Annotation
Rfam assigns this 68-nucleotide RNA from Rhinopomastus cyanomelas to the family "Small nucleolar RNA SNORD42". It scores 51 bits against the family's covariance model. From the family's description: snoRNA U42 is found in intron 3 of the ribosomal protein L23a (RPL23a) gene in humans and is also present in mice. For this family Rfam cites "Purified box C/D snoRNPs are able to reproduce site-specific 2'-O-methylation of target RNA in vitro" (Galardi et al., Mol Cell Biol, 2002).

RNA sequence: GUGCACAUGAUGCAAACUUCUUUUACCACUGAGUAAAAGUGAUGUUUCCAAAGGAACCACUGAUGCAC
Dot-bracket structure: (((((..........................................................)))))
Numbered sequence: 001g002u003g004c005a006c007a008u009g010a011u012g013c014a015a016a017c018u019u020c021u022u023u024u025a026c027c028a029c030u031g032a033g034u035a036a037a038a039g040u041g042a043u044g045u046u047u048c049c050a051a052a053g054g055a056a057c058c059a060c061u062g063a064u065g066c067a068c
Stems, first nucleotide, its partner, number of pairs: 001068005